Rfam assigns this 174-nucleotide RNA from Streptomyces fagopyri to the family "c-di-AMP riboswitch aptamer (ydaO/yuaA leader)".
RNA sequence: GCUCGGCCUCCGCCUAAUCCGGUGCGGCCUCGCGGCGACCGGAGCCGGGGACCCAACCGAACCCUGGGGUGAAUCGGCCAACUGCCCCACGGGGCAACGGCCGUAGGGCAUACCUUCCGGAUCUGUCCGCCCGAACCCGACAGCUAACUCGGUAGGCGGUGCACGGAAGGAGUA
Numbered sequence: 001g002c003u004c005g006g007c008c009u010c011c012g013c014c015u016a017a018u019c020c021g022g023u024g025c026g027g028c029c030u031c032g033c034g035g036c037g038a039c040c041g042g043a044g045c046c047g048g049g050g051a052c053c054c055a056a057c058c059g060a061a062c063c064c065u066g067g068g069g070u071g072a073a074u075c076g077g078c079c080a081a082c083u084g085c086c087c088c089a090c091g092g093g094g095c096a097a098c099g100g101c102c103g104u105a106g107g108g109c110a111u112a113c114c115u116u117c118c119g120g121a122u123c124u125g126u127c128c129g130c131c132c133g134a135a136c137c138c139g140a141c142a143g144c145u146a147a148c149u150c151g152g153u154a155g156g157c158g159g160u161g162c163a164c165g166g167a168a169g170g171a172g173u174a
Base pairs, nucleotide, nucleotide: 011158012157013156014155018043019042020041021040022039023038044153045152046151047150048149049148054066055065067138068137069136075103076102077101078100106132107131108130109129